[Rfam]
This 61-nucleotide RNA belongs to the Rfam family "Transposase-1 RNA".
RNA sequence: CGUUCGGAAGUUACCUCCGUCGUUACCCACCUUGUUGUGGAUACGGGAAUGUAGCUGUUAA
Numbered sequence: 001c002g003u004u005c006g007g008a009a010g011u012u013a014c015c016u017c018c019g020u021c022g023u024u025a026c027c028c029a030c031c032u033u034g035u036u037g038u039g040g041a042u043a044c045g046g047g048a049a050u051g052u053a054g055c056u057g058u059u060a061a
Stems, first nucleotide, its partner, number of pairs: 009056006020046004027040003